[Rfam]
RNA: Pseudomon-Rho RNA
RNA sequence: UUCGGAUUCGCGACGCUUCUUCCGUCGCCCUCUGCAUGCCGUCGCCGACGCACUUCCGCCUCAUAAAGCACAACGAACUCCGUUCGUCUCUUGCUGCGCGGC
Numbered sequence: 001u002u003c004g005g006a007u008u009c010g011c012g013a014c015g016c017u018u019c020u021u022c023c024g025u026c027g028c029c030c031u032c033u034g035c036a037u038g039c040c041g042u043c044g045c046c047g048a049c050g051c052a053c054u055u056c057c058g059c060c061u062c063a064u065a066a067a068g069c070a071c072a073a074c075g076a077a078c079u080c081c082g083u084u085c086g087u088c089u090c091u092u093g094c095u096g097c098g099c100g101g102c
Base pairs, nucleotide, nucleotide: 010028011027012026013025014024015023038102039101040100041099043098044097045096047094074086075085076084077083078082